Shown here is an 84-nucleotide RNA from Candidatus Magnetomorum sp. HK-1, a member of the family "c-di-GMP-I riboswitch aptamer". GEMM was predicted in a large-scale screen for bacterial structured RNA regulatory elements.
[Rfam]
RNA sequence: CAUAGAAAAUAGCAAACUAAUUGAAAAAUUAGGACGCAAAGCCACCGGCCUACGUUUGUAGAAUAAGGCAGCGGGGUCACCUAU
Numbered sequence: 001c002a003u004a005g006a007a008a009a010u011a012g013c014a015a016a017c018u019a020a021u022u023g024a025a026a027a028a029u030u031a032g033g034a035c036g037c038a039a040a041g042c043c044a045c046c047g048g049c050c051u052a053c054g055u056u057u058g059u060a061g062a063a064u065a066a067g068g069c070a071g072c073g074g075g076g077u078c079a080c081c082u083a084u
Base pairs, nucleotide, nucleotide: 012037013036017032018031019030020029021028022027041077042076043075045074046073047072048069049068050067055063056062057061